Annotation
Rfam assigns this 71-nucleotide RNA sequence from Ornithorhynchus anatinus to the family "mir-128 microRNA precursor family". On this family, see Chen et al., Genes Dev 2005: "The developmental miRNA profiles of zebrafish as determined by small RNA cloning". Lineage of the source: Eukaryota > Chordata > Sarcopterygii > Tetrapoda > Ornithorhynchus. The family's consensus secondary structure was predicted with RNAalifold. Rfam's curators put it in the seed alignment.
[Rfam]
RNA sequence: GCUGGAUUCGGGGCCGAUACACGGUCUGAGGGGUUUACGAGUCUCACAGUGAACCGGUCUCUUUUUCAGUU
Numbered sequence: 001g002c003u004g005g006a007u008u009c010g011g012g013g014c015c016g017a018u019a020c021a022c023g024g025u026c027u028g029a030g031g032g033g034u035u036u037a038c039g040a041g042u043c044u045c046a047c048a049g050u051g052a053a054c055c056g057g058u059c060u061c062u063u064u065u066u067c068a069g070u071u
Stems, first nucleotide, its partner, number of pairs: 001070005010061007020051003024047002028045003